A member of the RNA family "Selenocysteine transfer RNA" from Actinoplanes campanulatus, 92 nucleotides long. The match comes from Rfam's covariance-model search (62 bits). Lineage of the source: Bacteria > Actinomycetes > Micromonosporales > Micromonosporaceae > Actinoplanes. Clan: tRNA clan.

[Rfam]
RNA sequence: GGAGGCGUUUGAGUUCCUGGUGGUCUCCCCCGCCUUCAAAGCGGGUGGGCCUGGCUCAGCCCGGCCGGCGGGUUCGAUUCCUGUCCGCCUCC
Dot-bracket structure: (((((((...(((..((....)).))).(((((.......)))))..((((...........))))..((((.......))))..)))))))
Numbered sequence: 001g002g003a004g005g006c007g008u009u010u011g012a013g014u015u016c017c018u019g020g021u022g023g024u025c026u027c028c029c030c031c032g033c034c035u036u037c038a039a040a041g042c043g044g045g046u047g048g049g050c051c052u053g054g055c056u057c058a059g060c061c062c063g064g065c066c067g068g069c070g071g072g073u074u075c076g077a078u079u080c081c082u083g084u085c086c087g088c089c090u091c092c
Stems, first nucleotide, its partner, number of pairs: 001092007011027003016023002029045005048066004069083004